RNA sequence: AAUUUUGCUCGUAGGAACAAGAAGCAGAUUUAUUCUACACCCGAUAAGUACCAAGACGCAAUGGUC
Numbered sequence: 001a002a003u004u005u006u007g008c009u010c011g012u013a014g015g016a017a018c019a020a021g022a023a024g025c026a027g028a029u030u031u032a033u034u035c036u037a038c039a040c041c042c043g044a045u046a047a048g049u050a051c052c053a054a055g056a057c058g059c060a061a062u063g064g065u066c
Stems, first nucleotide, its partner, number of pairs: 003022002006019002009016002041064002048057002

This 66-nucleotide RNA from Cannabis sativa belongs to the Rfam family "Plastid-clpP 5UTR RNA". The match comes from Rfam's covariance-model search (64 bits). By type it is a cis-regulatory element. Plastid clpP is a non-coding RNA (ncRNA) recognised in plastids. It was found in the prime untranslated region (5UTR) of a protease complex subunit (clpP) in plastids, suggesting a posible cis-regulatory function.